[Rfam]
RNA sequence: UGCCUAAACCUUAUUGAUAUAAGGCAUGGCGCAAAAACCCAGUAAGAGAUAUUGAGCUCGUCACCAGGGUACUCUUACUGGGUCAUAACUCGAAAGAGUUAUGGGUAGCCGAAAGGUUAUC
Numbered sequence: 001u002g003c004c005u006a007a008a009c010c011u012u013a014u015u016g017a018u019a020u021a022a023g024g025c026a027u028g029g030c031g032c033a034a035a036a037a038c039c040c041a042g043u044a045a046g047a048g049a050u051a052u053u054g055a056g057c058u059c060g061u062c063a064c065c066a067g068g069g070u071a072c073u074c075u076u077a078c079u080g081g082g083u084c085a086u087a088a089c090u091c092g093a094a095a096g097a098g099u100u101a102u103g104g105g106u107a108g109c110c111g112a113a114a115g116g117u118u119a120u121c
Base pairs, nucleotide, nucleotide: 001031002030003029004028009024010023011022012021013020014019038082039081040080041079042078043077044076045075046074047073048072056070057069058068084103085102086101087100088099089098090097091096104121105120106119107118108117109116
RNA: LOOT RNA